RNA: Group I catalytic intron
RNA sequence: CAAGCGGCAUAAAAGCUGUCCGCUAGUGGGCUGGGAAUCACACUCCCAGCCCGCAACACUGUCAAAUUGCGGGAACAUCCUAAAGCCAACACUACCAAGCGGGCGCUGAAAGGCGUGCGUGGCCGGGGUAAUGACCUAGGGUAUGGUAAAAACGUGUUGGAUGAUACAAUGGACAAUCCGCAGCCAAGCUCUAAGUCCGGUGUCACGACGCCGGAUAUGGGUGCAGUUCAACGACUAAAUGGUAGUGGGUUCUGCGAGAAACGCGUGCUGCGAACUUCUCCCGGGGCUUAAGAUAUAGUCUACUCCCACUCUGAAAGGAUGGG
Numbered sequence: 001c002a003a004g005c006g007g008c009a010u011a012a013a014a015g016c017u018g019u020c021c022g023c024u025a026g027u028g029g030g031c032u033g034g035g036a037a038u039c040a041c042a043c044u045c046c047c048a049g050c051c052c053g054c055a056a057c058a059c060u061g062u063c064a065a066a067u068u069g070c071g072g073g074a075a076c077a078u079c080c081u082a083a084a085g086c087c088a089a090c091a092c093u094a095c096c097a098a099g100c101g102g103g104c105g106c107u108g109a110a111a112g113g114c115g116u117g118c119g120u121g122g123c124c125g126g127g128g129u130a131a132u133g134a135c136c137u138a139g140g141g142u143a144u145g146g147u148a149a150a151a152a153c154g155u156g157u158u159g160g161a162u163g164a165u166a167c168a169a170u171g172g173a174c175a176a177u178c179c180g181c182a183g184c185c186a187a188g189c190u191c192u193a194a195g196u197c198c199g200g201u202g203u204c205a206c207g208a209c210g211c212c213g214g215a216u217a218u219g220g221g222u223g224c225a226g227u228u229c230a231a232c233g234a235c236u237a238a239a240u241g242g243u244a245g246u247g248g249g250u251u252c253u254g255c256g257a258g259a260a261a262c263g264c265g266u267g268c269u270g271c272g273a274a275c276u277u278c279u280c281c282c283g284g285g286g287c288u289u290a291a292g293a294u295a296u297a298g299u300c301u302a303c304u305c306c307c308a309c310u311c312u313g314a315a316a317g318g319a320u321g322g323g
Base pairs, nucleotide, nucleotide: 007023008022011019013017029039030038057247058246059245060244061243063241064240068182069181070180071179072178073177078173079172080171183227184226188222189221190220191219196215197214198213199212200211201210202209231301233300234299235298236297237296249287250286251285252284253283254282256280257279258278259277260276307321308320310319311318312317